[Rfam]
The family of this 81-nucleotide RNA sequence from Verticiella sediminum is "SucA RNA motif". For this family Rfam cites "Identification of 22 candidate structured RNAs in bacteria using the CMfinder comparative genomics pipeline" (Weinberg et al., Nucleic Acids Res, 2007).

RNA sequence: UUGCUAUCCGCCAUCCGGUCUGGCCGUAACGCGGAAGGUUUUUCCUGCAUCGCACGGGUGAAGCACCCGAAAGGUGAAGCG
Numbered sequence: 001u002u003g004c005u006a007u008c009c010g011c012c013a014u015c016c017g018g019u020c021u022g023g024c025c026g027u028a029a030c031g032c033g034g035a036a037g038g039u040u041u042u043u044c045c046u047g048c049a050u051c052g053c054a055c056g057g058g059u060g061a062a063g064c065a066c067c068c069g070a071a072a073g074g075u076g077a078a079g080c081g
Stems, first nucleotide, its partner, number of pairs: 002081003007035005016026004037045002048076004055069006
The source organism's lineage runs through Bacteria, Pseudomonadota, Burkholderiales, Alcaligenaceae and Verticiella. Gene Ontology term of the family: regulation of translation.